[Rfam]
RNA sequence: GGCGGCGCUGCGGGAGAGUGAGGGGAGACCCUCCGCCGAAGGAGCAACCGCCCCCGGAAUCUCUCAGGCCAACGGACCGCAGCGGCGCU
Numbered sequence: 001g002g003c004g005g006c007g008c009u010g011c012g013g014g015a016g017a018g019u020g021a022g023g024g025g026a027g028a029c030c031c032u033c034c035g036c037c038g039a040a041g042g043a044g045c046a047a048c049c050g051c052c053c054c055c056g057g058a059a060u061c062u063c064u065c066a067g068g069c070c071a072a073c074g075g076a077c078c079g080c081a082g083c084g085g086c087g088c089u
Stems, first nucleotide, its partner, number of pairs: 006084008020033004035069003038065002042063003048056001
RNA: Glycine riboswitch aptamer
Organism: Sandaracinobacter neustonicus